The record is a 101-nucleotide sequence from Macrococcoides caseolyticum, which matches "SAM riboswitch aptamer (S box leader)" in Rfam. NCBI's taxonomy places the organism under Bacteria, Bacillati, Staphylococcaceae, Macrococcoides, Macrococcoides caseolyticum.
[Rfam]
RNA sequence: UUCUUAUCCAGAGAAGUGGAGGGAACUGGCCCUAUGAUACUUCAGCAACAGACUUUAAGUACUGUGCUAAAUCCAGCAAGCAUAUGCUUGGUAGAUAAGUG
Numbered sequence: 001u002u003c004u005u006a007u008c009c010a011g012a013g014a015a016g017u018g019g020a021g022g023g024a025a026c027u028g029g030c031c032c033u034a035u036g037a038u039a040c041u042u043c044a045g046c047a048a049c050a051g052a053c054u055u056u057a058a059g060u061a062c063u064g065u066g067c068u069a070a071a072u073c074c075a076g077c078a079a080g081c082a083u084a085u086g087c088u089u090g091g092u093a094g095a096u097a098a099g100u101g
Stems, first nucleotide, its partner, number of pairs: 001101001003099006013043005021032003026076004044068004049064002052060003072093001077090005
About this RNA:
Rfam links the family to the GO term regulation of gene expression. A search with the family's covariance model found it, with a score of 86 bits.